[Rfam]
RNA sequence: GUAGGCUAUGGAGAUAUGGCACCUGUCACUGUGGGUGGCAAGAUAGUGGGUUCUCUCUGUGCCAUUGCAGGCGUGCUGACCAUCUCUCUGCCCGUGCCUGUCAUUGUCUCCAAC
Numbered sequence: 001g002u003a004g005g006c007u008a009u010g011g012a013g014a015u016a017u018g019g020c021a022c023c024u025g026u027c028a029c030u031g032u033g034g035g036u037g038g039c040a041a042g043a044u045a046g047u048g049g050g051u052u053c054u055c056u057c058u059g060u061g062c063c064a065u066u067g068c069a070g071g072c073g074u075g076c077u078g079a080c081c082a083u084c085u086c087u088c089u090g091c092c093c094g095u096g097c098c099u100g101u102c103a104u105u106g107u108c109u110c111c112a113a114c
Stems, first nucleotide, its partner, number of pairs: 001114002004111002008107004013102004018097001021095002037077004049063003
RNA: Potassium channel RNA editing signal